[Rfam]
RNA sequence: GGCUCGGUCUGAUAUGUUUGAUAUUCGGUUGUCUGACUGGGAACCAACUCAAUAUCAAACAUUUCCUACGGUGCC
Numbered sequence: 001g002g003c004u005c006g007g008u009c010u011g012a013u014a015u016g017u018u019u020g021a022u023a024u025u026c027g028g029u030u031g032u033c034u035g036a037c038u039g040g041g042a043a044c045c046a047a048c049u050c051a052a053u054a055u056c057a058a059a060c061a062u063u064u065c066c067u068a069c070g071g072u073g074c075c
Stems, first nucleotide, its partner, number of pairs: 005071001007069002011064002014062012027049005